[Rfam]
RNA sequence: CCUGCAACAAUCUCCUGAUGCUGCCUGAGUGUUUUUCUUCCACUCCAGCAUCAGUGAUUUUGUUGCCGG
Numbered sequence: 001c002c003u004g005c006a007a008c009a010a011u012c013u014c015c016u017g018a019u020g021c022u023g024c025c026u027g028a029g030u031g032u033u034u035u036u037c038u039u040c041c042a043c044u045c046c047a048g049c050a051u052c053a054g055u056g057a058u059u060u061u062g063u064u065g066c067c068g069g
Stems, first nucleotide, its partner, number of pairs: 006064005013057002015054009
The family of this 69-nucleotide RNA sequence from Danio rerio is "mir-338 microRNA precursor family". Rfam's curators put it in the seed alignment. Pairs were carried over by alignment from the consensus structure, which was predicted with RNAalifold. On this family, see Chen et al., Genes Dev 2005: "The developmental miRNA profiles of zebrafish as determined by small RNA cloning".